The record is a 365-nucleotide RNA from bacterium K02(2017), which matches "Bacterial RNase P class A" in Rfam.
RNA sequence: UAAAAUAAACACAUGUUCGCAGUUUGAAUAGGACUUGUUCUAUUAGACUGAGGAAAGUCCGGACACCGUAGAGAACCAUAGCGGGUAACGCCCGUCCAGUUUUAGGUAACUGAGGACUAGUGUCACAGAAACCAAGUACGUUUUUAGAUUUAUCUAAAAAGCUGUAGUGAAAAGGAUAAACUCUAUGGGGUGCAAAGCCAAAUAGGUCAUGCUGAUGGCAACAUCUUAGUCGUCUCGGCUAAAAGGUUUGGGAAACCAAACAUGGCAUGAUGGGUAGGCUGCAUGAGUAAACCGGCAACGGUUAACCUAGAUGAAUGAACAUGACGAUUUUUCGACAGAAUCCGGCUUAUCGUUUAUUUCCUAAU
Dot-bracket structure: ..((((((((((((((((.((((((((...............))))))))....[[[.[[[[[((((........((((((((((.....)))))(((((........)))).)((...(((((............((.(((((((((....)))))).)))..))........)))..)))))))))))))...((((......((((((...................................(((((....))))).....)))))).....))))......((.(((((....))))).))..........))))))).................]]]]]]]].).))))))))......